[Rfam]
RNA sequence: AAGAUGCCGAGAACCUUUUGAAUCAAGCAGUGCGGCGAUUCAAAAGGUUCUUACAAA
Numbered sequence: 001a002a003g004a005u006g007c008c009g010a011g012a013a014c015c016u017u018u019u020g021a022a023u024c025a026a027g028c029a030g031u032g033c034g035g036c037g038a039u040u041c042a043a044a045a046g047g048u049u050c051u052u053a054c055a056a057a
Base pairs, nucleotide, nucleotide: 009052010051011050012049013048014047015046016045017044018043019042020041021040022039023038024037
Rfam assigns this 57-nucleotide RNA sequence from Citrus unshiu to the family "Plastid-ccsA-ndhD-1 3UTR RNA". The literature on the family includes a 2023 paper in Plant Commun by Richter et al., "Retrograde signaling in plants: A critical review focusing on the GUN pathway and beyond". Plastid-ccsA-ndhD-1 is a non-coding RNA (ncRNA) recognised in plastids. It was found in the three prime untranslated region (3UTR) of ccsA and ndhD genes, its 3UTR location suggests a role in transcript maturation. The base pairs follow the family's consensus structure, which was predicted with LocARNA. The match comes from Rfam's covariance-model search (60 bits).